[Rfam]
RNA sequence: CUCCUCAAGCCUCUUUGCAAUGCUCACCCCGAGGAGU
Dot-bracket structure: ((((((.(((...........)))......)))))).
Numbered sequence: 001c002u003c004c005u006c007a008a009g010c011c012u013c014u015u016u017g018c019a020a021u022g023c024u025c026a027c028c029c030c031g032a033g034g035a036g037u
Stems, first nucleotide, its partner, number of pairs: 001036006008024003
Description:
Rfam assigns this 37-nucleotide sequence to the family "abiF RNA". A search with the family's covariance model found it, with a score of 41 bits.